[Rfam]
RNA sequence: GGUCAUGAGAGCCAGCGCUAAGCCCCAGCUAGCUGGUCGGCAACCCUCCAACCGCGGUGGGGUGCCCUGGGUGAAGACCGGGUAACGACUGCAAGGCUCUAAGCCUUGCAGCACCAAACGUUACAAACGCGGGCU
Numbered sequence: 001g002g003u004c005a006u007g008a009g010a011g012c013c014a015g016c017g018c019u020a021a022g023c024c025c026c027a028g029c030u031a032g033c034u035g036g037u038c039g040g041c042a043a044c045c046c047u048c049c050a051a052c053c054g055c056g057g058u059g060g061g062g063u064g065c066c067c068u069g070g071g072u073g074a075a076g077a078c079c080g081g082g083u084a085a086c087g088a089c090u091g092c093a094a095g096g097c098u099c100u101a102a103g104c105c106u107u108g109c110a111g112c113a114c115c116a117a118a119c120g121u122u123a124c125a126a127a128c129g130c131g132g133g134c135u
Stems, first nucleotide, its partner, number of pairs: 001079004009038001011037006021030002039066003044062003048057002082124006090116002